[Rfam]
RNA sequence: UAUAGUGUAAGGCUGAAUCUCAAUUAUUGAGUACGGAGUAACCAAUUAAAGAGGUUAAUCUGGGCUUUUUCUAUAUUGCAGUGAGCAAUUGAUUUUUUUAGCACAGUAGGUAGUGACUUUAAAACUAAACCUGACAGCUAACUCCGGAAGCCAGAAGGGAGGGGGA
Numbered sequence: 001u002a003u004a005g006u007g008u009a010a011g012g013c014u015g016a017a018u019c020u021c022a023a024u025u026a027u028u029g030a031g032u033a034c035g036g037a038g039u040a041a042c043c044a045a046u047u048a049a050a051g052a053g054g055u056u057a058a059u060c061u062g063g064g065c066u067u068u069u070u071c072u073a074u075a076u077u078g079c080a081g082u083g084a085g086c087a088a089u090u091g092a093u094u095u096u097u098u099u100a101g102c103a104c105a106g107u108a109g110g111u112a113g114u115g116a117c118u119u120u121a122a123a124a125c126u127a128a129a130c131c132u133g134a135c136a137g138c139u140a141a142c143u144c145c146g147g148a149a150g151c152c153a154g155a156a157g158g159g160a161g162g163g164g165g166a
Stems, first nucleotide, its partner, number of pairs: 011152004019031002034146005043051001052132003060106003109126003
Dot-bracket structure: ..........((((....((.........))..(((((....(.......)(((.....(((.........................................)))..(((............)))...))).........)))))..))))..............
RNA: c-di-AMP riboswitch aptamer (ydaO/yuaA leader)